The family of this 72-nucleotide RNA from Pediculus humanus is "mir-278 microRNA precursor family".
Rfam links the family to the GO terms RISC complex and miRNA-mediated post-transcriptional gene silencing.
It scores 62 bits against the family's covariance model.
On this family, see Stark et al., Genome Res 2007: "Systematic discovery and characterization of fly microRNAs using 12 Drosophila genomes".
The base pairs follow the family's consensus structure, which was predicted with RNAalifold.
[Rfam]
RNA sequence: GUUACGCUCGGAUGAAAGUUUUACCAAUCGUGUUAAAUAAAUUGAUCGGUGGGACUUUCGUCCGUUUAAAAC
Dot-bracket structure: ..(..(..(((((((.(((((((.(.(((..............))).).))))))).)))))))..)..)..